This 194-nucleotide RNA sequence from Cohnella pontilimi belongs to the Rfam family "c-di-AMP riboswitch aptamer (ydaO/yuaA leader)". Taxonomically the source falls in Cohnella (Bacteria, Bacillati, Bacillota, Paenibacillaceae). This family represents a conserved RNA structure found upstream of the ydaO and yuaA genes in Bacillus subtilis and related genes in other bacteria. Rfam links the family to the GO terms cyclic-di-AMP binding and regulation of gene expression.
[Rfam]
RNA sequence: UUUCCAGAAACGCUGAAUCUUCCGUUAGGAAGAGCGGGGGACCCAACGCAAGGGGCGUCGAUGACGUCAGCAGCGGUCCGAGCAAUCUUGGGGUGAAUUUCGCGCAGGCGGCACAAUGAAGCCGUACGGCGAAUAGGGCAACUCUCUUUGCCCGAAUCCGACAGCUAACCUCGCAAGCGUAUGAGAGAGAGGUC
Numbered sequence: 001u002u003u004c005c006a007g008a009a010a011c012g013c014u015g016a017a018u019c020u021u022c023c024g025u026u027a028g029g030a031a032g033a034g035c036g037g038g039g040g041a042c043c044c045a046a047c048g049c050a051a052g053g054g055g056c057g058u059c060g061a062u063g064a065c066g067u068c069a070g071c072a073g074c075g076g077u078c079c080g081a082g083c084a085a086u087c088u089u090g091g092g093g094u095g096a097a098u099u100u101c102g103c104g105c106a107g108g109c110g111g112c113a114c115a116a117u118g119a120a121g122c123c124g125u126a127c128g129g130c131g132a133a134u135a136g137g138g139c140a141a142c143u144c145u146c147u148u149u150g151c152c153c154g155a156a157u158c159c160g161a162c163a164g165c166u167a168a169c170c171u172c173g174c175a176a177g178c179g180u181a182u183g184a185g186a187g188a189g190a191g192g193u194c
Stems, first nucleotide, its partner, number of pairs: 011179004018033006034174006044090002091159003099133004136153004